[Rfam]
RNA sequence: CCAAAAAUAAUUUUUUCUAGUUAGUUAAGAUGAGUAUUUAGGAUUUACAAUAAUUCAAAUGGAAGGAGUGAUUUCAAUGACUGCAGAUAUCAUUUCAACAAUUGGUGAUUUUGUAAAAUGGAUUUUAGAUACAGUAAAAAAAUUCACUAAAUAAUAGUAGAAAUUCAUUGUAACUUUGUUUUCUUCGUAUAAAAGGUGAGUUAUUAAGCCAUCCCAACUUAAUAACUUGCAACAUUAGUAGGUGACCAAACAUUUACUAAUAUGACUGUAGUUUUCCUUGGACUCAGUGUUACGUAUUAUUCUUAGCUACCUUUAAUUAGGUAUUUUUCUAACAUGUAAGCUAUCGUAAAACAACAUUCAAUUUAUCAUUAUAAAAAGAGAUAAAUUCACUAAAAUUUUUUCAUAAUUAAUAACAUCCCCAAAAAAAUAGAUUGAAAAAAUAACUGUAAAAACAUUCCCUUAAUAAUAAGUUAUCAAAAGCCGUGAGCCCCUCCCAAGCUCACGGU
Numbered sequence: 001c002c003a004a005a006a007a008u009a010a011u012u013u014u015u016u017c018u019a020g021u022u023a024g025u026u027a028a029g030a031u032g033a034g035u036a037u038u039u040a041g042g043a044u045u046u047a048c049a050a051u052a053a054u055u056c057a058a059a060u061g062g063a064a065g066g067a068g069u070g071a072u073u074u075c076a077a078u079g080a081c082u083g084c085a086g087a088u089a090u091c092a093u094u095u096c097a098a099c100a101a102u103u104g105g106u107g108a109u110u111u112u113g114u115a116a117a118a119u120g121g122a123u124u125u126u127a128g129a130u131a132c133a134g135u136a137a138a139a140a141a142a143u144u145c146a147c148u149a150a151a152u153a154a155u156a157g158u159a160g161a162a163a164u165u166c167a168u169u170g171u172a173a174c175u176u177u178g179u180u181u182u183c184u185u186c187g188u189a190u191a192a193a194a195g196g197u198g199a200g201u202u203a204u205u206a207a208g209c210c211a212u213c214c215c216a217a218c219u220u221a222a223u224a225a226c227u228u229g230c231a232a233c234a235u236u237a238g239u240a241g242g243u244g245a246c247c248a249a250a251c252a253u254u255u256a257c258u259a260a261u262a263u264g265a266c267u268g269u270a271g272u273u274u275u276c277c278u279u280g281g282a283c284u285c286a287g288u289g290u291u292a293c294g295u296a297u298u299a300u301u302c303u304u305a306g307c308u309a310c311c312u313u314u315a316a317u318u319a320g321g322u323a324u325u326u327u328u329c330u331a332a333c334a335u336g337u338a339a340g341c342u343a344u345c346g347u348a349a350a351a352c353a354a355c356a357u358u359c360a361a362u363u364u365a366u367c368a369u370u371a372u373a374a375a376a377a378g379a380g381a382u383a384a385a386u387u388c389a390c391u392a393a394a395a396u397u398u399u400u401u402c403a404u405a406a407u408u409a410a411u412a413a414c415a416u417c418c419c420c421a422a423a424a425a426a427a428u429a430g431a432u433u434g435a436a437a438a439a440a441u442a443a444c445u446g447u448a449a450a451a452a453c454a455u456u457c458c459c460u461u462a463a464u465a466a467u468a469a470g471u472u473a474u475c476a477a478a479a480g481c482c483g484u485g486a487g488c489c490c491c492u493c494c495c496a497a498g499c500u501c502a503c504g505g506u
Base pairs, nucleotide, nucleotide: 003015004014005013006012007011022446023445024444025443026442027441032358033357034355035354037350038349039348040347065096066095067094068093069092070091071090072089074087075086102129103128105126107124108123109121110120134147135146137144138143157183159181161180162177163176187293188292189291190286200226201225202224203223204222205221206220207219208218234261235260236259243252244251264285265284268283269282305324308323309322310321311320330343331342333340361386362385363384364383365382366381367380396440397439398438399437400436401435402434403433406432407431408430410428411427480506481505482504483503484502485501486500487499488498
Description
Shown here is a 506-nucleotide sequence from Staphylococcus warneri, a member of the family "RNAIII". The sequence is in the family's curated seed alignment. Taxonomically the source falls in Staphylococcus (Bacteria, Bacillota, Caryophanales, Staphylococcaceae). Its family is annotated with regulation of gene expression in the Gene Ontology. On this family, see Benito et al., RNA 2000: "Probing the structure of RNAIII, the Staphylococcus aureus agr regulatory RNA, and identification of the RNA domain involved in repression of protein A expression". Pairs were carried over by alignment from the consensus structure, which is taken from published work. This family represents RNAIII which is known to regulate the expression of many Staphylococcus aureus genes encoding exoproteins and cell wall associated proteins.